[Rfam]
RNA sequence: UAAGUACUUUCGCUUGCAGAGAGAAAUCACAGUGGUCAAAAAAGUUGUAGUUUUCUUAAAGUCUCUUUCCUCUGUGAUUCUCUGUGUAAGCGAAAGAGCUUG
Numbered sequence: 001u002a003a004g005u006a007c008u009u010u011c012g013c014u015u016g017c018a019g020a021g022a023g024a025a026a027u028c029a030c031a032g033u034g035g036u037c038a039a040a041a042a043a044g045u046u047g048u049a050g051u052u053u054u055c056u057u058a059a060a061g062u063c064u065c066u067u068u069c070c071u072c073u074g075u076g077a078u079u080c081u082c083u084g085u086g087u088a089a090g091c092g093a094a095a096g097a098g099c100u101u102g
Stems, first nucleotide, its partner, number of pairs: 001102005007096012020083006027077006034070002039068003